Source information:
Small nucleolar RNA SNORD115: a 78-nucleotide RNA from Odobenus rosmarus. Gene Ontology terms of the family: nucleolus and RNA processing. On this family, see Cavaille et al., Proc Natl Acad Sci U S A 2000: "Identification of brain-specific and imprinted small nucleolar RNA genes exhibiting an unusual genomic organization". The family's RNA type in Rfam is C/D-box small nucleolar RNA.
[Rfam]
RNA sequence: GGAUCAAUGAUAACUCAUAUUGUCUCAAAGGGAAAUGAUGACAUAAAAAUCAUGCUCAAUCGGAUUACACUGAGGCCC
Numbered sequence: 001g002g003a004u005c006a007a008u009g010a011u012a013a014c015u016c017a018u019a020u021u022g023u024c025u026c027a028a029a030g031g032g033a034a035a036u037g038a039u040g041a042c043a044u045a046a047a048a049a050u051c052a053u054g055c056u057c058a059a060u061c062g063g064a065u066u067a068c069a070c071u072g073a074g075g076c077c078c
Stems, first nucleotide, its partner, number of pairs: 001078002004075001005072002008069002